[Rfam]
RNA sequence: GUCCGUCCAGUGCCCCUUUUAUGUUGUACUACUGGUGCCGUGGUCCUGAGAGCAGUGCAAUGUUAAAAGGGCAUUGGCUGGGUU
Numbered sequence: 001g002u003c004c005g006u007c008c009a010g011u012g013c014c015c016c017u018u019u020u021a022u023g024u025u026g027u028a029c030u031a032c033u034g035g036u037g038c039c040g041u042g043g044u045c046c047u048g049a050g051a052g053c054a055g056u057g058c059a060a061u062g063u064u065a066a067a068a069g070g071g072c073a074u075u076g077g078c079u080g081g082g083u084u
Stems, first nucleotide, its partner, number of pairs: 001084001003082001005079001007077004012072004017067003022062009
RNA: mir-130 microRNA precursor family
Organism: Clarias magur